[Rfam]
RNA: mir-8799 microRNA precursor family
RNA sequence: GGGAGCACAGGAUCCUGGGCUGUGUCCCCCAGCGCUCUGGGAUCUGGGGUCUGUGCUGUUGGAAUCAUGCGCCCAGGGCCGCGGCUCUU
Numbered sequence: 001g002g003g004a005g006c007a008c009a010g011g012a013u014c015c016u017g018g019g020c021u022g023u024g025u026c027c028c029c030c031a032g033c034g035c036u037c038u039g040g041g042a043u044c045u046g047g048g049g050u051c052u053g054u055g056c057u058g059u060u061g062g063a064a065u066c067a068u069g070c071g072c073c074c075a076g077g078g079c080c081g082c083g084g085c086u087c088u089u
Base pairs, nucleotide, nucleotide: 001089002088003087004086005085006084008083010080011079014077015076017074018073019072021069022068023067024066025063026062029061030058031057032056033055034054035053039051041050043048